[Rfam]
RNA: Cyanobacterial functional RNA 1
Organism: Leptolyngbya sp. FACHB-36
RNA sequence: GCGGAGACGCAUGUUUCCGUUCACUCCUCACACCACACUCCGCCUGAACGUUCCGUUUAGGCGGUU
Dot-bracket structure: ((((((((....))))))))....................(((((((((.....)))))))))...